[Rfam]
The record is an 83-nucleotide sequence from Aedes aegypti, which matches "mir-263 microRNA precursor family" in Rfam. The literature on the family includes a 2009 paper in BMC Genomics by Li et al., "Direct sequencing and expression analysis of a large number of miRNAs in Aedes aegypti and a multi-species survey of novel mosquito miRNAs". The family's consensus secondary structure was predicted with RNAalifold. Rfam 15.1 lists 368 matches to the family in 211 species. Rfam's curators put it in the seed alignment.
RNA sequence: AAUUACGAACCUUGGCACUGGGAGAAUUCACAGGCGCUAUUUGCUAUCAUUCUGUGGAUCUUUUCGUGCCAUCGUUUAAAUUC
Numbered sequence: 001a002a003u004u005a006c007g008a009a010c011c012u013u014g015g016c017a018c019u020g021g022g023a024g025a026a027u028u029c030a031c032a033g034g035c036g037c038u039a040u041u042u043g044c045u046a047u048c049a050u051u052c053u054g055u056g057g058a059u060c061u062u063u064u065c066g067u068g069c070c071a072u073c074g075u076u077u078a079a080a081u082u083c
Stems, first nucleotide, its partner, number of pairs: 004080001007077004013071005020064002022061001024060002028057006